This 69-nucleotide sequence from Kitasatospora atroaurantiaca belongs to the Rfam family "Actino-pnp RNA".
Nucleotides: 069
Base pairs, nucleotide, nucleotide: 001069002068003067004066005065006064007063009061010060011059012058013057017053018052019051020050022048023047024046025045026044028042029041030040031039
Number, partner (000 for none) and nucleotide at each position: 001069g002068c003067c004066g005065g006064u007063c008000c009061u010060c011059g012058g013057u014000a015000g016000u017053g018052g019051c020050c021000g022048c023047c024046g025045g026044g027000a028042g029041u030040c031039c032000c033000a034000c035000g036000a037000g038000a039031g040030g041029a042028c043000g044026c045025c046024c047023g048022g049000a050020g051019g052018c053017u054000u055000c056000g057013a058012u059011c060010g061009a062000a063007g064006a065005c066004c067003g068002g069001c
Background: It is annotated as a cis-regulatory element.